[Rfam]
RNA sequence: CGUUGCCUGUGGUGUUUGUAGACGCUUCAAAUCCCUUAGAACCUAGUAUUUUUUUCCGGGGACCGGACCACGCUGCUGUUGUGAGUGCUCGUCAGAUUUGUGUCUUCACAGUCCACGAGCGCACCUGAUGCGGCUUGUAGGUUCCCACUUGAACCGUUGGUUCAAGGCACCAAGCGUUUACGGCACUUAUGGGUGACGC
Numbered sequence: 001c002g003u004u005g006c007c008u009g010u011g012g013u014g015u016u017u018g019u020a021g022a023c024g025c026u027u028c029a030a031a032u033c034c035c036u037u038a039g040a041a042c043c044u045a046g047u048a049u050u051u052u053u054u055u056c057c058g059g060g061g062a063c064c065g066g067a068c069c070a071c072g073c074u075g076c077u078g079u080u081g082u083g084a085g086u087g088c089u090c091g092u093c094a095g096a097u098u099u100g101u102g103u104c105u106u107c108a109c110a111g112u113c114c115a116c117g118a119g120c121g122c123a124c125c126u127g128a129u130g131c132g133g134c135u136u137g138u139a140g141g142u143u144c145c146c147a148c149u150u151g152a153a154c155c156g157u158u159g160g161u162u163c164a165a166g167g168c169a170c171c172a173a174g175c176g177u178u179u180a181c182g183g184c185a186c187u188u189a190u191g192g193g194u195g196a197c198g199c
Base pairs, nucleotide, nucleotide: 002197003196004195005194006193007192008191009190010189011188012186013185014184015183017182018181019180034167035166036165039163040162041161042160043159058146059145060144062142063141064140066138070136072134073133074132075131076130081124082123